Notes:
Rfam assigns this 92-nucleotide RNA sequence from a Clostridiales bacterium to the family "c-di-GMP-II-GAG riboswitch aptamer". Its family is annotated with regulation of gene expression and cyclic-di-GMP binding in the Gene Ontology. It scores 64 bits against the family's covariance model. A reference for the family is Weinberg et al. (2017), "Bioinformatic analysis of riboswitch structures uncovers variant classes with altered ligand specificity", Proc Natl Acad Sci U S A. The source organism's lineage runs through Bacteria, Bacillati, Bacillota, Clostridia and Eubacteriales.

RNA sequence: AAUCAUCAGGGAGGCUAAGAUCCGUCGCCGACAUCAUGUCGGUCACCGAGCAGGGCGGCGGGGAGCCAGUGGUGAGACCGGCCCAUUAGAUC
Numbered sequence: 001a002a003u004c005a006u007c008a009g010g011g012a013g014g015c016u017a018a019g020a021u022c023c024g025u026c027g028c029c030g031a032c033a034u035c036a037u038g039u040c041g042g043u044c045a046c047c048g049a050g051c052a053g054g055g056c057g058g059c060g061g062g063g064a065g066c067c068a069g070u071g072g073u074g075a076g077a078c079c080g081g082c083c084c085a086u087u088a089g090a091u092c
Stems, first nucleotide, its partner, number of pairs: 002091003009084003013067003022061008041079002043075005